About this RNA
Rfam assigns this 92-nucleotide RNA from Pediococcus acidilactici to the family "TPP riboswitch aptamer (THI element)".
[Rfam]
RNA sequence: AAAGUUCGUCUGGGGUGCCAUUUUUGGCUGAGAUCAUACCCAUUGAACCUGAUGUAGUUCGUACUACCGAAGGAAGACCGAAUACCGCAAUA
Dot-bracket structure: .....(.(((((((.(((((....)))).......)..)))).....(((...((((......))))...)))..))).)............
Numbered sequence: 001a002a003a004g005u006u007c008g009u010c011u012g013g014g015g016u017g018c019c020a021u022u023u024u025u026g027g028c029u030g031a032g033a034u035c036a037u038a039c040c041c042a043u044u045g046a047a048c049c050u051g052a053u054g055u056a057g058u059u060c061g062u063a064c065u066a067c068c069g070a071a072g073g074a075a076g077a078c079c080g081a082a083u084a085c086c087g088c089a090a091u092a
Stems, first nucleotide, its partner, number of pairs: 006080001008078003011042004016036001017028004048073003054067004

Vitamin B(1) in its active form thiamin pyrophosphate (TPP) is an essential coenzyme that is synthesised by coupling of pyrimidine and thiazole moieties in bacteria. Pairs were carried over by alignment from the consensus structure, which is taken from published work.